Shown here is a 96-nucleotide RNA from Nicotiana sylvestris, a member of the family "MIR6152 microRNA precursor family". Rfam links the family to the GO terms RISC complex and miRNA-mediated post-transcriptional gene silencing. The match comes from Rfam's covariance-model search (96 bits).
RNA sequence: UGGACAGAUUAUUGUAUUCGACUGUAUUCACAACAUGAAAUAGAGGAUGGCUCUGUUUUUAAAUGAAAAGUGAAUCAAUUAACAUAAUAGACUUCU
Numbered sequence: 001u002g003g004a005c006a007g008a009u010u011a012u013u014g015u016a017u018u019c020g021a022c023u024g025u026a027u028u029c030a031c032a033a034c035a036u037g038a039a040a041u042a043g044a045g046g047a048u049g050g051c052u053c054u055g056u057u058u059u060u061a062a063a064u065g066a067a068a069a070g071u072g073a074a075u076c077a078a079u080u081a082a083c084a085u086a087a088u089a090g091a092c093u094u095c096u
Base pairs, nucleotide, nucleotide: 002095003094004093009090010089011088012087013086014085015084017082018081020080021079023077024076026075027074028073029072030071031070034065035064036063037059038058039057040056041055042054043053
Source information:
The family's consensus secondary structure was predicted with RNAalifold.